[Rfam]
RNA: Early nodulin 40
Organism: Lupinus albus
RNA sequence: AACAUAACCAUGGGUCAUAGAAGAAGCAUAAAAGGGACAGUGUUAGAGGGUCCUUACCCCUCACAUUCUUCCUUCAUUUUUGUAUAGUGGCACAAGGAAGAAGACCAUAGAAGCUUUCUCCAAAGGAAUACAAGAUUGACCUUUGGCAAACCGGCAAGUCAUAAAAAGGCAAUAGACUCCAUUAUAUGGGCUAU
Number, nucleotide and partner (000 for none) at each position: 001a000002a000003c000004a000005u000006a000007a000008c000009c000010a000011u000012g000013g000014g000015u000016c000017a000018u000019a000020g000021a000022a000023g000024a000025a000026g000027c000028a000029u000030a000031a000032a000033a000034g000035g000036g000037a000038c000039a000040g000041u000042g071043u000044u000045a000046g000047a000048g000049g000050g000051u000052c000053c000054u000055u000056a000057c000058c000059c000060c000061u000062c000063a000064c000065a000066u000067u000068c000069u000070u000071c042072c000073u000074u000075c000076a000077u150078u149079u148080u000081u146082g000083u000084a000085u000086a000087g000088u000089g000090g000091c000092a000093c138094a137095a136096g000097g000098a000099a000100g000101a000102a000103g000104a000105c000106c000107a000108u000109a000110g000111a000112a000113g000114c000115u000116u000117u000118c000119u000120c000121c000122a000123a000124a000125g000126g000127a000128a000129u000130a000131c000132a000133a000134g000135a000136u095137u094138g093139a000140c000141c000142u000143u000144u000145g000146g081147c000148a079149a078150a077151c000152c000153g000154g000155c000156a000157a000158g000159u000160c000161a000162u000163a000164a000165a000166a000167a000168g000169g000170c000171a000172a000173u000174a000175g192176a000177c190178u189179c188180c000181a000182u000183u000184a000185u000186a000187u000188g179189g178190g177191c000192u175193a000194u000